RNA sequence: GGGUUGAUGAUGAGAUCUUAUCUUGUCUUGAAGAAAGAAGAUCACCUAAAAAUCAUGUUCAAUAAGAUUAUGCUAGACCC
Numbered sequence: 001g002g003g004u005u006g007a008u009g010a011u012g013a014g015a016u017c018u019u020a021u022c023u024u025g026u027c028u029u030g031a032a033g034a035a036a037g038a039a040g041a042u043c044a045c046c047u048a049a050a051a052a053u054c055a056u057g058u059u060c061a062a063u064a065a066g067a068u069u070a071u072g073c074u075a076g077a078c079c080c
Stems, first nucleotide, its partner, number of pairs: 001080004006074001008072002
The record is an 80-nucleotide RNA from Equus asinus, which matches "Small nucleolar RNA SNORD115" in Rfam. Lineage of the source: Eukaryota > Teleostomi > Tetrapoda > Laurasiatheria > Equus. Its family is annotated with nucleolus and RNA processing in the Gene Ontology. Rfam classes the family as a C/D-box small nucleolar RNA. Pairs were carried over by alignment from the consensus structure, which was predicted with PFOLD.